[Rfam]
RNA sequence: GCUGGUGUGGCUCAAUUGGUAGAGCAACUGACUUGUAAUCAGUAGGUUGGGGGUUCAAGUCCCUCCACCAGCA
Dot-bracket structure: (((((((..((((........)))).(((((.......))))).....(((((.......)))))))))))).